Rfam assigns this 135-nucleotide RNA from Clytia hemisphaerica to the family "U11 spliceosomal RNA".
RNA sequence: GAAAAGGGUACUUGUCGUCUUUGACACGUGGUAGCUCCCUCAUAAGAGGGGGCACUGCGCGGAAUCGCAAUCAAGAGAUUUCGAGUACAAAAUGUUUGGACUUGCGAGCUGUUGGUCUCUUUGACCGACGCUCCA
Numbered sequence: 001g002a003a004a005a006g007g008g009u010a011c012u013u014g015u016c017g018u019c020u021u022u023g024a025c026a027c028g029u030g031g032u033a034g035c036u037c038c039c040u041c042a043u044a045a046g047a048g049g050g051g052g053c054a055c056u057g058c059g060c061g062g063a064a065u066c067g068c069a070a071u072c073a074a075g076a077g078a079u080u081u082c083g084a085g086u087a088c089a090a091a092a093u094g095u096u097u098g099g100a101c102u103u104g105c106g107a108g109c110u111g112u113u114g115g116u117c118u119c120u121u122u123g124a125c126c127g128a129c130g131c132u133c134c135a
Base pairs, nucleotide, nucleotide: 008088009087010086011085012084013026014025015024016023017022027059028058029057030056031055034053035052036051037050038049039048060083061082062081063080064079065078066077106133107132108131109130111129112128113127114126115125119123
Annotation: The organism belongs to Clytia, within Eukaryota. It is annotated as a spliceosomal small nuclear RNA. The base pairs follow the family's consensus structure, which is taken from published work.